[Rfam]
RNA: Fluoride riboswitch aptamer (crcB RNA motif)
Organism: Bacteroides luti
RNA sequence: GCCUGUUUUGGCAAUGGCAUCUGCCUUAAACCGCUCAAUUGAGCUGAUGAUACCUACUUAAAG
Number, nucleotide and partner (000 for none) at each position: 001g000002c000003c000004u000005g000006u000007u000008u000009u000010g025011g024012c023013a022014a000015u000016g054017g053018c000019a051020u050021c049022u013023g012024c011025c010026u000027u000028a000029a000030a000031c000032c000033g044034c043035u042036c041037a000038a000039u000040u000041g036042a035043g034044c033045u000046g000047a000048u000049g021050a020051u019052a000053c017054c016055u000056a000057c000058u000059u000060a000061a000062a000063g000